[Rfam]
Nucleotides: 133
Stems, first nucleotide, its partner, number of pairs: 006040003012034005051083010093128011
Number, partner (000 for none) and nucleotide at each position: 001000c002000a003000g004000a005000a006040a007039c008038g009000a010000u011000c012034u013033g014032g015031u016030c017000u018000c019000u020000c021000c022000u023000c024000c025000u026000c027000c028000c029000u030016g031015a032014c033013c034012a035000c036000u037000u038008c039007g040006u041000u042000u043000c044000g045000c046000a047000c048000a049000u050000a051083g052082c053081g054080a055079a056078u057077g058076c059075u060074c061000u062000c063000u064000c065000c066000u067000c068000c069000u070000c071000c072000c073000u074060g075059a076058g077057c078056g079055u080054u081053c082052g083051c084000a085000c086000a087000a088000a089000u090000a091000g092000c093128a094127c095126g096125g097124c098123g099122g100121c101120a102119c103118c104000c105000c106000u107000c108000c109000u110000c111000c112000u113000c114000c115000c116000u117000g118103g119102g120101u121100g122099c123098c124097g125096c126095c127094g128093u129000u130000u131000g132000c133000u